RNA sequence: CCCUCCGAAGUUUCCCUCAGGAUAGCUGGAGCUUGUGCAGUUUUAUCGGGUAAAGCGAAUGAUUAGAGGUUUGGGGGCUGAAACAGCCUUCGCCUAUUCUCAAACUUUAAAUAGGUAAGCUCUGGGUUACUUAAUUGAACCUAGGGGUGUAAUGAGAGCUCCAUGUGGGCCAUUUUUGGUAAGCAGAACUGGCGAUGCGGGAUGAACCGAAAGCCGGGUUAAAGUGCCAAACUGCGCGCUAACCUAGAUCCCACAAAGGGUGUUGAUUCAUACAGACAGCAGGACGGUGGUCAUGGAAGUCGAAAUCCGCUAAGGAGUGUGUAACAACUCACCUGCCGAAUGAAUUAGCCCCGAAAAUGGAUGGCGCUUAAGCGCGCGACUUAUACCCGGCCAUCAGGGUGAGUACGAUACCCUGAUGAGUAGGAGGGCGUGAAGGCUGUGGCGCAGCUUGGGGCGUGAGCCCGAGUGAAACAGCCUUUAGUGCAGAU
Number, nucleotide and partner (000 for none) at each position: 001c428002c427003c426004u425005c424006c423007g000008a000009a000010g000011u024012u000013u022014c021015c020016c000017u000018c000019a000020g015021g014022a013023u000024a011025g000026c000027u163028g162029g161030a160031g159032c158033u157034u000035g000036u000037g000038c000039a000040g000041u000042u000043u118044u117045a116046u115047c114048g000049g000050g000051u000052a000053a108054a106055g105056c000057g000058a000059a000060u102061g101062a100063u000064u000065a097066g000067a095068g094069g093070u000071u000072u092073g091074g090075g089076g088077g087078c000079u085080g000081a000082a000083a000084c000085a079086g000087c077088c076089u075090u074091c073092g072093c069094c068095u067096a000097u065098u000099c000100u062101c061102a060103a000104a000105c055106u054107u000108u053109a000110a000111a000112u000113a000114g047115g046116u045117a044118a043119g000120c146121u145122c144123u143124g142125g141126g140127u139128u138129a000130c000131u000132u000133a000134a000135u000136u000137g000138a128139a127140c126141c125142u124143a123144g122145g121146g120147g000148u000149g000150u000151a000152a000153u000154g000155a000156g000157a033158g032159c031160u030161c029162c028163a027164u000165g000166u000167g000168g000169g193170c192171c191172a190173u000174u188175u187176u186177u185178g184179g000180u000181a000182a000183g000184c178185a177186g176187a175188a174189c000190u172191g171192g170193c169194g000195a000196u000197g000198c209199g208200g207201g000202a000203u000204g000205a000206a000207c200208c199209g198210a000211a000212a000213g391214c390215c389216g388217g387218g000219u385220u000221a000222a000223a381224g380225u379226g000227c000228c000229a000230a000231a000232c378233u000234g377235c000236g000237c374238g373239c372240u000241a000242a000243c000244c000245u000246a000247g000248a000249u000250c000251c000252c000253a000254c000255a000256a000257a000258g352259g351260g350261u000262g349263u348264u347265g346266a345267u344268u343269c342270a341271u340272a000273c000274a000275g000276a000277c000278a000279g336280c335281a334282g333283g332284a000285c309286g308287g307288u000289g000290g000291u303292c302293a000294u000295g000296g000297a000298a000299g000300u000301c000302g292303a291304a000305a000306u000307c287308c286309g285310c314311u000312a000313a000314g310315g330316a000317g000318u000319g328320u327321g000322u000323a000324a000325c000326a000327a320328c319329u000330c315331a000332c283333c282334u281335g280336c279337c000338g000339a000340a271341u270342g269343a268344a267345u266346u265347a264348g263349c262350c260351c259352c258353g000354a000355a000356a000357a000358u000359g000360g000361a000362u000363g000364g000365c000366g000367c000368u000369u000370a000371a000372g239373c238374g237375c000376g000377c234378g232379a225380c224381u223382u000383a000384u000385a219386c000387c217388c216389g215390g214391c213392c418393a417394u416395c415396a414397g413398g412399g411400u410401g000402a000403g000404u000405a000406c000407g000408a000409u000410a400411c399412c398413c397414u396415g395416a394417u393418g392419a000420g000421u000422a000423g006424g005425a004426g003427g002428g001429c483430g000431u480432g479433a478434a477435g476436g475437c474438u473439g472440u471441g000442g000443c000444g000445c000446a000447g467448c466449u000450u000451g000452g000453g462454g461455c460456g000457u000458g000459a000460g455461c454462c453463c000464g000465a000466g448467u447468g000469a000470a000471a440472c439473a438474g437475c436476c435477u434478u433479u432480a431481g000482u000483g429484c000485a000486g000487a000488u000

The record is a 488-nucleotide part of an RNA from Micromonas commoda, which matches "Eukaryotic large subunit ribosomal RNA" in Rfam. The base pairs follow the family's consensus structure, which is taken from published work. Lineage of the source: Eukaryota > Mamiellophyceae > Mamiellales > Mamiellaceae > Micromonas.